[Rfam]
Notes
A member of the RNA family "Group II catalytic intron D1-D4-3" from Suicoccus acidiformans, 174 nucleotides long. NCBI's taxonomy places the organism under Bacteria, Bacillati, Bacilli, Aerococcaceae, Suicoccus.

RNA sequence: UCCGUCGUGAGGCGGAAUCUGAAGGAAGCCGGUGGCAAAUACUUGCGCUGACGAACAGAAACUUUAUAUCAAGGCUGAGGCAGAUGGAUGAGCUUGCAGUACAAAGCGAACUCCGAUACUACACGAAAUCUGUAGCAGUAAAUAAAGCAACGACAUGAGUAGAAAGUUAUUGCG
Numbered sequence: 001u002c003c004g005u006c007g008u009g010a011g012g013c014g015g016a017a018u019c020u021g022a023a024g025g026a027a028g029c030c031g032g033u034g035g036c037a038a039a040u041a042c043u044u045g046c047g048c049u050g051a052c053g054a055a056c057a058g059a060a061a062c063u064u065u066a067u068a069u070c071a072a073g074g075c076u077g078a079g080g081c082a083g084a085u086g087g088a089u090g091a092g093c094u095u096g097c098a099g100u101a102c103a104a105a106g107c108g109a110a111c112u113c114c115g116a117u118a119c120u121a122c123a124c125g126a127a128a129u130c131u132g133u134a135g136c137a138g139u140a141a142a143u144a145a146a147g148c149a150a151c152g153a154c155a156u157g158a159g160u161a162g163a164a165a166g167u168u169a170u171u172g173c174g
Stems, first nucleotide, its partner, number of pairs: 001016006030172003035167002040161006046152002049149002062147006074139003080133005086114003092107004